The record is an 85-nucleotide RNA sequence from Sporomusa silvacetica, which matches "c-di-GMP-I riboswitch aptamer" in Rfam. The organism belongs to Sporomusa silvacetica, within Bacteria. Rfam 15.1 lists 5,092 matches to the family in 1,772 species. The base pairs follow the family's consensus structure, which is taken from published work. Clan: c-di-GMP_I riboswitch clan. Rfam links the family to the GO term cyclic-di-GMP binding.
[Rfam]
RNA sequence: UUAAGGAUUGGGCAAACUCAUUGAAAAAUGGGGACGCAAAACCGUGGGUCUAAGACAAAGAUGUUAUGGCUGCCAGGUUGCAACU
Numbered sequence: 001u002u003a004a005g006g007a008u009u010g011g012g013c014a015a016a017c018u019c020a021u022u023g024a025a026a027a028a029u030g031g032g033g034a035c036g037c038a039a040a041a042c043c044g045u046g047g048g049u050c051u052a053a054g055a056c057a058a059a060g061a062u063g064u065u066a067u068g069g070c071u072g073c074c075a076g077g078u079u080g081c082a083a084c085u
Base pairs, nucleotide, nucleotide: 012037013036017032018031019030020029021028022027040079041078042077043076045075046074047073048070049069050068055064056063057062